Shown here is a 100-nucleotide RNA sequence from Loigolactobacillus bifermentans, a member of the family "Bacterial small signal recognition particle RNA". Taxonomically the source falls in Loigolactobacillus bifermentans (Bacteria, Bacilli, Lactobacillales, Loigolactobacillus). The family is grouped with related families in Rfam's "SRP clan". Its family is annotated with SRP-dependent cotranslational protein targeting to membrane, signal sequence recognition and signal recognition particle, plasma membrane targeting in the Gene Ontology. The signal recognition particle (SRP) is a universally conserved ribonucleoprotein involved in the co-translational targeting of proteins to membranes. It is annotated as a non-coding RNA gene. A search with the family's covariance model found it, with a score of 60 bits. A reference for the family is Rosenblad et al. (2009), "Kinship in the SRP RNA family", RNA Biol.
RNA sequence: GAAAGGCUAAGCGACAAUGUUGCGCUUACGAAUCGUGUCAGGUUCGGAAGAAAGCAGCACUAAGUAGGAUGUGGCAUGUGUCGCUUAUUAUUUUGAAAUA
Numbered sequence: 001g002a003a004a005g006g007c008u009a010a011g012c013g014a015c016a017a018u019g020u021u022g023c024g025c026u027u028a029c030g031a032a033u034c035g036u037g038u039c040a041g042g043u044u045c046g047g048a049a050g051a052a053a054g055c056a057g058c059a060c061u062a063a064g065u066a067g068g069a070u071g072u073g074g075c076a077u078g079u080g081u082c083g084c085u086u087a088u089u090a091u092u093u094u095g096a097a098a099u100a
Stems, first nucleotide, its partner, number of pairs: 004094003008090001009086006015078001017077006025068005035060004043052003